[Rfam]
RNA sequence: CGGGGACUGACGCGCAACCAACUGCAGACGGGAGCGGGGGGGAAACCGGAGGAAGAGUGCUCAGGUAGGAAAGCGUAGCGAAGAGCCGGCACAAAUAGCAGUUCGCUACCCACCGAGGGUGAAGGGAUACCACCCGAGGGGCCAGACGGAAUCCCGGUCUGGACGCCUGAGAGGCUCGAAACAGAAAGA
Numbered sequence: 001c002g003g004g005g006a007c008u009g010a011c012g013c014g015c016a017a018c019c020a021a022c023u024g025c026a027g028a029c030g031g032g033a034g035c036g037g038g039g040g041g042g043a044a045a046c047c048g049g050a051g052g053a054a055g056a057g058u059g060c061u062c063a064g065g066u067a068g069g070a071a072a073g074c075g076u077a078g079c080g081a082a083g084a085g086c087c088g089g090c091a092c093a094a095a096u097a098g099c100a101g102u103u104c105g106c107u108a109c110c111c112a113c114c115g116a117g118g119g120u121g122a123a124g125g126g127a128u129a130c131c132a133c134c135c136g137a138g139g140g141g142c143c144a145g146a147c148g149g150a151a152u153c154c155c156g157g158u159c160u161g162g163a164c165g166c167c168u169g170a171g172a173g174g175c176u177c178g179a180a181a182c183a184g185a186a187a188g189a
Base pairs, nucleotide, nucleotide: 001048002047003046011038013036014035015034060171061170062169063168064167065166075109076108077107078106079105080104081103082102117135118134119133120132121131124155125154126153127152128151142162143161144160145159146158147157